[Rfam]
RNA sequence: UUCGCCCAUGAUUGUCCAAACGCAAUUCUUGUAGUGGCAAAAUCCAAGAACUGUGUAUGGACAUCAGUGGCUGA
Numbered sequence: 001u002u003c004g005c006c007c008a009u010g011a012u013u014g015u016c017c018a019a020a021c022g023c024a025a026u027u028c029u030u031g032u033a034g035u036g037g038c039a040a041a042a043u044c045c046a047a048g049a050a051c052u053g054u055g056u057a058u059g060g061a062c063a064u065c066a067g068u069g070g071c072u073g074a
Base pairs, nucleotide, nucleotide: 002073004071005070006069009066010065011064012063014062015061016060017059018058021055022054023053024052026050027049028048029047030046031045
RNA: mir-219 microRNA precursor family